[Rfam]
RNA sequence: GCUGUGCAUGAUGACAACUGGCUCCCUCUACUGAGCUGAGAUGAGGAAACUGCCUUGUCACCACCUGAUACAGC
Numbered sequence: 001g002c003u004g005u006g007c008a009u010g011a012u013g014a015c016a017a018c019u020g021g022c023u024c025c026c027u028c029u030a031c032u033g034a035g036c037u038g039a040g041a042u043g044a045g046g047a048a049a050c051u052g053c054c055u056u057g058u059c060a061c062c063a064c065c066u067g068a069u070a071c072a073g074c
Stems, first nucleotide, its partner, number of pairs: 001074006
Notes
The family of this 74-nucleotide sequence from Tupaia belangeri is "Small nucleolar RNA SNORD100". NCBI's taxonomy places the organism under Eukaryota, Chordata, Eutheria, Scandentia, Tupaia belangeri. A reference for the family is Galardi et al. (2002), "Purified box C/D snoRNPs are able to reproduce site-specific 2'-O-methylation of target RNA in vitro", Mol Cell Biol. The family's RNA type in Rfam is C/D-box small nucleolar RNA. Gene Ontology terms of the family: RNA processing and nucleolus. Pairs were carried over by alignment from the consensus structure, which was predicted with RNAalifold.